[Rfam]
RNA sequence: AGUAAACGCACGGGGUGCCUGACUAGAAAUGUUAGGCUGAGAUCAUACCCGCCACCUGAUUUGGAUAAUGCCAACGUAGGGAUGCUGUAUUAAAUACUC
Numbered sequence: 001a002g003u004a005a006a007c008g009c010a011c012g013g014g015g016u017g018c019c020u021g022a023c024u025a026g027a028a029a030u031g032u033u034a035g036g037c038u039g040a041g042a043u044c045a046u047a048c049c050c051g052c053c054a055c056c057u058g059a060u061u062u063g064g065a066u067a068a069u070g071c072c073a074a075c076g077u078a079g080g081g082a083u084g085c086u087g088u089a090u091u092a093a094a095u096a097c098u099c
Stems, first nucleotide, its partner, number of pairs: 008085003011051004016045001017037007055080004061074004
Dot-bracket structure: .......(((((((.((((((((.......))))))).......)..))))...((((..((((......))))..))))..)))..............